[Rfam]
RNA sequence: UGCAUAUGAUGUGAAUGAAUAUUUGCUAUCUGAGCACCAGUGCUGACAUAUCCCACCAAGAUCGCUGAUGCA
Numbered sequence: 001u002g003c004a005u006a007u008g009a010u011g012u013g014a015a016u017g018a019a020u021a022u023u024u025g026c027u028a029u030c031u032g033a034g035c036a037c038c039a040g041u042g043c044u045g046a047c048a049u050a051u052c053c054c055a056c057c058a059a060g061a062u063c064g065c066u067g068a069u070g071c072a
Stems, first nucleotide, its partner, number of pairs: 001072004
The record is a 72-nucleotide RNA from Albula goreensis, which matches "Small nucleolar RNA SNORD24" in Rfam. Rfam 15.1 lists 2,843 matches to the family in 1,188 species. Its family is annotated with nucleolus and RNA processing in the Gene Ontology. Pairs were carried over by alignment from the consensus structure, which was predicted with PFOLD.